[Rfam]
RNA sequence: UGGCCAAGGAUGAGAAAACUAAUCUGAUUGAAUAUCGUUCUGCUCUGAUGGGUUAAAGGAUUUACCUGAGGCCA
Numbered sequence: 001u002g003g004c005c006a007a008g009g010a011u012g013a014g015a016a017a018a019c020u021a022a023u024c025u026g027a028u029u030g031a032a033u034a035u036c037g038u039u040c041u042g043c044u045c046u047g048a049u050g051g052g053u054u055a056a057a058g059g060a061u062u063u064a065c066c067u068g069a070g071g072c073c074a
Stems, first nucleotide, its partner, number of pairs: 002073004
This 74-nucleotide RNA from Camelus dromedarius belongs to the Rfam family "Small nucleolar RNA SNORD93". It scores 97 bits against the family's covariance model. The base pairs follow the family's consensus structure, which was predicted with RNAalifold. A reference for the family is Huttenhofer et al. (2001), "RNomics: an experimental approach that identifies 201 candidates for novel, small, non-messenger RNAs in mouse", EMBO J.